[Rfam]
RNA: xerDC RNA
RNA sequence: GAUCCCAGCCGGAGGGAUCAUAGGACGCAAGCGAUUUUUUCGCAGCCGGUGUUCAGCGGUUUGCGUCCACAGCCGCCCAUCAGGGCAGGGUGAACUUCACCCCACGCUGUAUCAUACUGACC
Numbered sequence: 001g002a003u004c005c006c007a008g009c010c011g012g013a014g015g016g017a018u019c020a021u022a023g024g025a026c027g028c029a030a031g032c033g034a035u036u037u038u039u040u041c042g043c044a045g046c047c048g049g050u051g052u053u054c055a056g057c058g059g060u061u062u063g064c065g066u067c068c069a070c071a072g073c074c075g076c077c078c079a080u081c082a083g084g085g086c087a088g089g090g091u092g093a094a095c096u097u098c099a100c101c102c103c104a105c106g107c108u109g110u111a112u113c114a115u116a117c118u119g120a121c122c
Base pairs, nucleotide, nucleotide: 001019002018003017004016005015006014023068024067025066026065027064028063029062030061031043032042033041034040045060046059047058048057069110070109071108072107073106075086076085077084078083088102090100091099092098
Dot-bracket structure: ((((((.......))))))...((((((((((((.....)))).((((........))))))))))))(((((.((((....)))).(.(((.....))).)...)))))............